Annotation:
Rfam assigns this 83-nucleotide RNA sequence from Myotis brandtii to the family "mir-574 microRNA precursor family".

RNA sequence: AGGCCUGCAGAGAGAGAGGCAGGCUCUGAUCCACAGCCUUCAUGGCAGCUGUUGAUCAGCUGUUGCCUGGCUCUUUCUCUUCU
Numbered sequence: 001a002g003g004c005c006u007g008c009a010g011a012g013a014g015a016g017a018g019g020c021a022g023g024c025u026c027u028g029a030u031c032c033a034c035a036g037c038c039u040u041c042a043u044g045g046c047a048g049c050u051g052u053u054g055a056u057c058a059g060c061u062g063u064u065g066c067c068u069g070g071c072u073c074u075u076u077c078u079c080u081u082c083u
Base pairs, nucleotide, nucleotide: 010075011074012073013072014071017068018067019066020065021064022063026059027058028057029056030055031054034051035050036049037048
It scores 81 bits against the family's covariance model. The organism belongs to Myotis, within Eukaryota. Its Rfam clan is "mir-574 microRNA precursor clan".